Shown here is a 122-nucleotide RNA from Pseudaminobacter soli, a member of the family "Alphaproteobacterial ar14". It scores 81 bits against the family's covariance model. On this family, see del Val et al., RNA Biol 2012: "A survey of sRNA families in alpha-proteobacteria". The family's RNA type in Rfam is small RNA. Rfam 15.1 lists 784 matches to the family in 332 species. Its family is annotated with biological process involved in symbiotic interaction in the Gene Ontology. Pairs were carried over by alignment from the consensus structure. Smr14C2 was renamed NfeR1 (Nodule Formation Efficiency RNA) highly expressed in salt stress and during the symbiotic interaction on legume roots.
RNA sequence: CGAAUUUCGCCGAGCCUACCUCCUCCCGGGCUUCGGUGAAUACGGUCAGCCUUCUCCUCCUCCCGAUAGCUGACCGACCCAAACGGCGCCCGCCGAACCUCCUCCCUCGGCGGGUGCUGUUC
Numbered sequence: 001c002g003a004a005u006u007u008c009g010c011c012g013a014g015c016c017u018a019c020c021u022c023c024u025c026c027c028g029g030g031c032u033u034c035g036g037u038g039a040a041u042a043c044g045g046u047c048a049g050c051c052u053u054c055u056c057c058u059c060c061u062c063c064c065g066a067u068a069g070c071u072g073a074c075c076g077a078c079c080c081a082a083a084c085g086g087c088g089c090c091c092g093c094c095g096a097a098c099c100u101c102c103u104c105c106c107u108c109g110g111c112g113g114g115u116g117c118u119g120u121u122c
Stems, first nucleotide, its partner, number of pairs: 007039003011035003014031003044075007053066001086117011